[Rfam]
RNA sequence: AGGUAAUGUCUACUGCACCUUUAUCACUGUAGGCACUCGAUCACGCUGUGGGUCUUCGGACCUUAGACGUUCAUCGUCGAGGGUGUGAUGUGAGGAAGGGUUGAAUGCCCU
Numbered sequence: 001a002g003g004u005a006a007u008g009u010c011u012a013c014u015g016c017a018c019c020u021u022u023a024u025c026a027c028u029g030u031a032g033g034c035a036c037u038c039g040a041u042c043a044c045g046c047u048g049u050g051g052g053u054c055u056u057c058g059g060a061c062c063u064u065a066g067a068c069g070u071u072c073a074u075c076g077u078c079g080a081g082g083g084u085g086u087g088a089u090g091u092g093a094g095g096a097a098g099g100g101u102u103g104a105a106u107g108c109c110c111u
Stems, first nucleotide, its partner, number of pairs: 001020004007035007036094004040089008050063005066078004097111005
This 111-nucleotide RNA from Paenibacillus curdlanolyticus belongs to the Rfam family "epsC RNA". Taxonomically the source falls in Paenibacillus curdlanolyticus (Bacteria, Bacillota, Paenibacillaceae, Paenibacillus). By type it is a cis-regulatory element. The match comes from Rfam's covariance-model search (104 bits).